The record is a 67-nucleotide RNA from Bombyx mori, which matches "mir-2774 microRNA precursor family" in Rfam. The match comes from Rfam's covariance-model search (75 bits). The literature on the family includes a 2010 paper in BMC Genomics by Liu et al., "MicroRNAs of Bombyx mori identified by Solexa sequencing". The organism belongs to Bombyx, within Eukaryota.

RNA sequence: ACAACAUUCGGACCGUCGGUCUACCGACCAAUGUCACCUGCUCGGUGGAAGAUCUUCCCUUCUUGGU
Numbered sequence: 001a002c003a004a005c006a007u008u009c010g011g012a013c014c015g016u017c018g019g020u021c022u023a024c025c026g027a028c029c030a031a032u033g034u035c036a037c038c039u040g041c042u043c044g045g046u047g048g049a050a051g052a053u054c055u056u057c058c059c060u061u062c063u064u065g066g067u
Base pairs, nucleotide, nucleotide: 004064010058011057012056015053016052017051020049021048022047023046024045025044026043027042029040